[Rfam]
RNA: Mammalian CPEB3 ribozyme
Organism: Alligator mississippiensis
Nucleotides: 071
Base pairs, nucleotide, nucleotide: 012039013038017071018070019069020068021067022066023065024036025035026034043060044059045058046057047056048055
Number, partner (000 for none) and nucleotide at each position: 001000a002000c003000a004000a005000g006000u007000u008000u009000g010000a011000g012039g013038c014000c015000a016000c017071a018070g019069u020068a021067g022066a023065a024036g025035u026034g027000c028000u029000c030000a031000u032000g033000g034026u035025g036024c037000a038013g039012c040000u041000g042000u043060c044059a045058g046057a047056u048055u049000c050000c051000a052000a053000c054000a055048a056047a057046u058045c059044u060043g061000c062000a063000a064000a065023u066022u067021c068020u069019g070018u071017u